RNA sequence: AGGCGGAUAAGGCGUUCACGCCGAAUCCGGCAAUUGUGCGCCGAUUGCCUGAUGCGACGCGGGCCGCGUCUUAUCAGGCC
Dot-bracket structure: .(.(((((..((((....))))..))))).)...............((((((((.(((((.....))))).)))))))).

The record is an 80-nucleotide sequence from Shigella boydii, which matches "Nucleoid-associated noncoding RNA 4 (CssrE)" in Rfam. In E. coli small RNA transcribed from repeated extragenic palindromic element (REP325) called nucleoid-associated ncRNA 4 (nRNA4) collaborates HU protein in condensing the DNA. The secondary structure but not the sequence of the RNA is important in nucleoid condensation. Also identified in Shigella as CssrE. It scores 74 bits against the family's covariance model. The family's RNA type in Rfam is small RNA. The organism belongs to Shigella boydii, within Bacteria. Pairs were carried over by alignment from the consensus structure, which is taken from published work.